[Rfam]
RNA sequence: CUUUUUUCCACAACAACAGAUUUGUGCCCAGCGGCCCCUUCAGCUUUCGGGCUGUACGGUCGACUGCUGCGGCAGUUCGUUCGUUCUAUGGAGCCACCUAUCCUCGCGGGUACUCAUGGUGUCAAUUUCCGAUCGACAGGUCUCAGAGCAAUUGGUCACCACGAAGCCUGAAUUCGCUGUAAAAGGUUUGAGUUCGGUGGACGGAGGACCGAAGACGUCACAUUCCAAUUCCUUUCACCGAGACCGUCGGUCUUUGAGGUUUAGGACUAACCGUUUCGACUACAUUU
Numbered sequence: 001c002u003u004u005u006u007u008c009c010a011c012a013a014c015a016a017c018a019g020a021u022u023u024g025u026g027c028c029c030a031g032c033g034g035c036c037c038c039u040u041c042a043g044c045u046u047u048c049g050g051g052c053u054g055u056a057c058g059g060u061c062g063a064c065u066g067c068u069g070c071g072g073c074a075g076u077u078c079g080u081u082c083g084u085u086c087u088a089u090g091g092a093g094c095c096a097c098c099u100a101u102c103c104u105c106g107c108g109g110g111u112a113c114u115c116a117u118g119g120u121g122u123c124a125a126u127u128u129c130c131g132a133u134c135g136a137c138a139g140g141u142c143u144c145a146g147a148g149c150a151a152u153u154g155g156u157c158a159c160c161a162c163g164a165a166g167c168c169u170g171a172a173u174u175c176g177c178u179g180u181a182a183a184a185g186g187u188u189u190g191a192g193u194u195c196g197g198u199g200g201a202c203g204g205a206g207g208a209c210c211g212a213a214g215a216c217g218u219c220a221c222a223u224u225c226c227a228a229u230u231c232c233u234u235u236c237a238c239c240g241a242g243a244c245c246g247u248c249g250g251u252c253u254u255u256g257a258g259g260u261u262u263a264g265g266a267c268u269a270a271c272c273g274u275u276u277c278g279a280c281u282a283c284a285u286u287u
Base pairs, nucleotide, nucleotide: 018143019142020141021140022139023138024137025136026073027072028071029069030068031067033065034064036062037059038058040056041054042053043052044051045050082135083134085132086131089124090123091122093120094119095118155209156208157207166198167197168196170195171194172193173192174191175190176187177186214280216278217277220274221273230266231265232264233263237260238259239258242252243251244250245249

This 287-nucleotide sequence from Diplocarpon coronariae belongs to the Rfam family "A. fumigatus sRNA Afu_309". Rfam 15.1 lists 663 matches to the family in 646 species. On this family, see Jochl et al., Nucleic Acids Res 2008: "Small ncRNA transcriptome analysis from Aspergillus fumigatus suggests a novel mechanism for regulation of protein synthesis". It is annotated as a small RNA.